[Rfam]
RNA sequence: UAAAACGAAUUGAACAGACCUCAUAUAAUCUCGGGAAUAAGGCCCGAAAGUCUCUACCUGGCGACCGUAAAUCGCCGGCCUAUGAGGACGAUCAGUAUACGU
Numbered sequence: 001u002a003a004a005a006c007g008a009a010u011u012g013a014a015c016a017g018a019c020c021u022c023a024u025a026u027a028a029u030c031u032c033g034g035g036a037a038u039a040a041g042g043c044c045c046g047a048a049a050g051u052c053u054c055u056a057c058c059u060g061g062c063g064a065c066c067g068u069a070a071a072u073c074g075c076c077g078g079c080c081u082a083u084g085a086g087g088a089c090g091a092u093c094a095g096u097a098u099a100c101g102u
Stems, first nucleotide, its partner, number of pairs: 019087007029049001031047005058078007
A member of the RNA family "Purine riboswitch aptamer" from Alteribacter keqinensis, 102 nucleotides long. Rfam describes the family as follows. Riboswitches are metabolite binding domains within certain messenger RNAs that serve as precision sensors for their corresponding targets.